The family of this 298-nucleotide RNA from Cryptotermes secundus is "Metazoan signal recognition particle RNA". The family's RNA type in Rfam is non-coding RNA gene. A search with the family's covariance model found it, with a score of 261 bits. The base pairs follow the family's consensus structure, which is taken from published work. For this family Rfam cites "Crystal structure of the ribonucleoprotein core of the signal recognition particle" (Batey et al., Science, 2000). The signal recognition particle (SRP) is a universally conserved ribonucleoprotein. It is involved in the co-translational targeting of proteins to membranes. The eukaryotic SRP consists of a 300-nucleotide 7S RNA and six proteins: SRPs 72, 68, 54, 19, 14, and 9.

[Rfam]
RNA sequence: GCUGGGAGUCGUGGCGUGCUCCUGUAAUCCAGCUACUUGGAAGCCGGGUAUCGAGGAUGAUUUGAGGUUGGGAGUUCUGGUGCUCAGUGACUCACGGUGACUGGGUGUCCGCACUAAGCUCAGCAUCAAUAUGGGCGCCUUGGGGGAGCCUGAGGCGGCCAGGUUGGUUAAUGAGGGGCGUACAGGGCCAGGGGGGAAACCCAGCAGCCAGAAGUCCCCGUGUUGAGCAGUAGUGGGAUCGCGCUCGGGAGUGGGAGCUGUGUGGCAGCCUAGCCAACAUAGUCAGACCGAUACCUUU
Number, nucleotide and partner (000 for none) at each position: 001g044002c043003u042004g023005g022006g021007a020008g019009u018010c000011g000012u000013g000014g000015c000016g000017u000018g009019c008020u007021c006022c005023u004024g000025u000026a000027a000028u041029c040030c039031a000032g000033c000034u000035a000036c000037u000038u000039g030040g029041a028042a003043g002044c001045c000046g296047g295048g294049u293050a292051u291052c290053g289054a000055g000056g000057a000058u285059g284060a283061u282062u281063u000064g000065a000066g275067g274068u273069u272070g271071g270072g269073a000074g000075u000076u000077c268078u267079g266080g000081u264082g263083c262084u000085c260086a259087g258088u257089g000090a000091c255092u254093c253094a252095c251096g000097g000098u000099g000100a000101c248102u247103g246104g245105g244106u243107g242108u241109c237110c236111g000112c235113a234114c233115u232116a231117a000118g228119c227120u226121c225122a224123g223124c222125a221126u220127c166128a165129a164130u163131a000132u161133g160134g159135g000136c157137g156138c155139c154140u153141u152142g151143g150144g149145g000146g000147a000148g000149c144150c143151u142152g141153a140154g139155g138156c137157g136158g000159c134160c133161a132162g000163g130164u129165u128166g127167g000168u000169u000170a000171a000172u000173g000174a000175g218176g217177g216178g215179c214180g000181u000182a000183c000184a000185g000186g209187g208188c207189c000190a000191g000192g000193g202194g201195g200196g000197a000198a000199a000200c195201c194202c193203a000204g000205c000206a000207g188208c187209c186210a000211g000212a000213a000214g179215u178216c177217c176218c175219c000220g126221u125222g124223u123224u122225g121226a120227g119228c118229a000230g000231u116232a115233g114234u113235g112236g110237g109238a000239u000240c000241g108242c107243g106244c105245u104246c103247g102248g101249g000250a000251g095252u094253g093254g092255g091256a000257g088258c087259u086260g085261u000262g083263u082264g081265g000266c079267a078268g077269c072270c071271u070272a069273g068274c067275c066276a000277a000278c000279a000280u000281a062282g061283u060284c059285a058286g000287a000288c000289c053290g052291a051292u050293a049294c048295c047296u046297u000298u000